[Rfam]
RNA: Arthropod 7SK RNA
Organism: Lottia gigantea
RNA sequence: UGGAGCGUGUGUCUGGUUGACACGGCUGAACAUAGAUCGCUGUUUCGUCGGCAGAUCUGUUUAGAAUCGAUGUCCCGCUUAAACACAAGUUUCACGUAUUCGGGUCUCCCGCUGCCUCGUCGCACGGUAGAGGCUCAUUCUAAAUUGGUCGCUCUCCCGAGUGCACCGUAGGGUUUACAUGUUCACUGGUCCUGUCUAAAUUCAAAGGUAGGGUUAUAACUCGACUACAGUUUAUGACGCUCCAAUACGGCACUACAAGUGGUAGUUUGCCUUCCUUUUU
Numbered sequence: 001u002g003g004a005g006c007g008u009g010u011g012u013c014u015g016g017u018u019g020a021c022a023c024g025g026c027u028g029a030a031c032a033u034a035g036a037u038c039g040c041u042g043u044u045u046c047g048u049c050g051g052c053a054g055a056u057c058u059g060u061u062u063a064g065a066a067u068c069g070a071u072g073u074c075c076c077g078c079u080u081a082a083a084c085a086c087a088a089g090u091u092u093c094a095c096g097u098a099u100u101c102g103g104g105u106c107u108c109c110c111g112c113u114g115c116c117u118c119g120u121c122g123c124a125c126g127g128u129a130g131a132g133g134c135u136c137a138u139u140c141u142a143a144a145u146u147g148g149u150c151g152c153u154c155u156c157c158c159g160a161g162u163g164c165a166c167c168g169u170a171g172g173g174u175u176u177a178c179a180u181g182u183u184c185a186c187u188g189g190u191c192c193u194g195u196c197u198a199a200a201u202u203c204a205a206a207g208g209u210a211g212g213g214u215u216a217u218a219a220c221u222c223g224a225c226u227a228c229a230g231u232u233u234a235u236g237a238c239g240c241u242c243c244a245a246u247a248c249g250g251c252a253c254u255a256c257a258a259g260u261g262g263u264a265g266u267u268u269g270c271c272u273u274c275c276u277u278u279u280u
Stems, first nucleotide, its partner, number of pairs: 001244008018077001026064003030060003035057004039052004249271003252266005